Nuclear RNase P: a 410-nucleotide RNA from Lasiosphaeris hirsuta. About the family: Ribonuclease P (RNase P) is a ubiquitous endoribonuclease, found in archaea, bacteria and eukarya as well as chloroplasts and mitochondria. Its family is annotated with tRNA processing, ribonuclease P complex and ribonuclease P activity in the Gene Ontology. The family's RNA type in Rfam is ribozyme.
[Rfam]
Nucleotides: 410
Stems, first nucleotide, its partner, number of pairs: 001410004008403002012324007022074004039054006084394005095292003158169004172187005189288004195283003210272003325382004331376007
Number, partner (000 for none) and nucleotide at each position: 001410u002409c003408c004407u005000c006000u007000u008403c009402a010000a011000c012324g013323c014322u015321g016320c017319g018318u019000u020000u021000c022074u023073a024072u025071g026000c027000u028000a029000c030000a031000c032000a033000c034000g035000g036000a037000g038000a039054g040053a041052c042051u043050g044049c045000g046000c047000a048000c049044g050043c051042a052041g053040u054039c055000u056000u057000u058000c059000a060000a061000a062000u063000c064000u065000u066000a067000u068000u069000g070000g071025c072024a073023u074022a075000u076000g077000a078000g079000a080000a081000a082000u083000u084394c085393g086392g087391a088390g089000a090000a091000a092000u093000c094000g095292c096291u097290u098000c099000a100000c101000u102000u103000u104000c105000a106000g107000c108000u109000c110000g111000c112000c113000c114000g115000u116000c117000a118000c119000a120000c121000u122000u123000g124000u125000g126000c127000c128000c129000u130000g131000g132000c133000g134000c135000u136000u137000g138000u139000g140000c141000g142000g143000u144000g145000g146000u147000g148000u149000c150000g151000a152000c153000g154000c155000u156000c157000u158169g159168c160167c161166g162000g163000u164000g165000a166161c167160g168159g169158c170000c171000u172187g173186g174185c175184g176183c177000g178000a179000u180000c181000u182000c183176g184175c185174g186173u187172c188000u189288g190287u191286a192285a193000u194000u195283g196282g197281c198000a199000u200000c201000a202000g203000a204000a205000a206000a207000g208000c209000a210272g211271g212270g213000c214000c215000u216000g217000g218000g219000c220000u221000c222000g223000a224000c225000a226000u227000c228000a229000u230000u231000c232000g233000u234000u235000c236000c237000c238000g239000c240000a241000a242000g243000g244000g245000g246000c247000g248000g249000g250000u251000a252000g253000u254000g255000c256000u257000c258000c259000a260000g261000u262000u263000c264000c265000a266000g267000g268000u269000u270212c271211c272210u273000c274000u275000g276000g277000g278000a279000g280000g281197g282196c283195c284000u285192u286191u287190a288189c289000g290097a291096a292095g293000c294000u295000u296000g297000u298000g299000a300000g301000c302000a303000a304000c305000a306000c307000u308000u309000u310000a311000g312000u313000g314000c315000a316000a317000u318018a319017c320016g321015c322014a323013g324012c325382g326381u327380g328379c329000c330000u331376u332375c333374c334373u335372c336371c337370a338000u339000c340000u341000g342000g343000c344000a345000g346000c347000u348000u349000g350000c351000u352000a353000c354000u355000u356000a357000g358000c359000a360000a361000g362000u363000c364000g365000u366000c367000a368000c369000u370337u371336g372335g373334g374333g375332g376331a377000u378000u379328g380327u381326a382325c383000a384000a385000u386000u387000c388000g389000a390088u391087u392086c393085c394084g395000a396000u397000c398000a399000u400000u401000c402009u403008g404000u405000u406000g407004a408003g409002g410001a